[Rfam]
RNA sequence: CCGUUAUCAAGAAAGGCGGAGGGACUAGACCCAAUGAAACCUUGGCAACCCUUUACUUUAAAGUAGGUGCUACAUUCUAUUACGCCUAUGGCGUGAAAGAUAACAG
Numbered sequence: 001c002c003g004u005u006a007u008c009a010a011g012a013a014a015g016g017c018g019g020a021g022g023g024a025c026u027a028g029a030c031c032c033a034a035u036g037a038a039a040c041c042u043u044g045g046c047a048a049c050c051c052u053u054u055a056c057u058u059u060a061a062a063g064u065a066g067g068u069g070c071u072a073c074a075u076u077c078u079a080u081u082a083c084g085c086c087u088a089u090g091g092c093g094u095g096a097a098a099g100a101u102a103a104c105a106g
Stems, first nucleotide, its partner, number of pairs: 001106001003104006013043004021032003028078001044071004049067002051063004076098001081095006
RNA: SAM riboswitch aptamer (S box leader)